The family of this 52-nucleotide RNA sequence from Xanthobacter sp. SG618 is "ffh sRNA".
On this family, see Meyer et al., BMC Genomics 2009: "Identification of candidate structured RNAs in the marine organism 'Candidatus Pelagibacter ubique'".
Pairs were carried over by alignment from the consensus structure, which is taken from published work.
It scores 55 bits against the family's covariance model.
The family's RNA type in Rfam is small RNA.
RNA sequence: GAGCCCGGAGGCCCCCGCCCGACAGCGCGAUGCGCCCUCGGGCGUGCUUUGC
Numbered sequence: 001g002a003g004c005c006c007g008g009a010g011g012c013c014c015c016c017g018c019c020c021g022a023c024a025g026c027g028c029g030a031u032g033c034g035c036c037c038u039c040g041g042g043c044g045u046g047c048u049u050u051g052c
Base pairs, nucleotide, nucleotide: 016044017043018042019041020040021039022038025035026034027033028032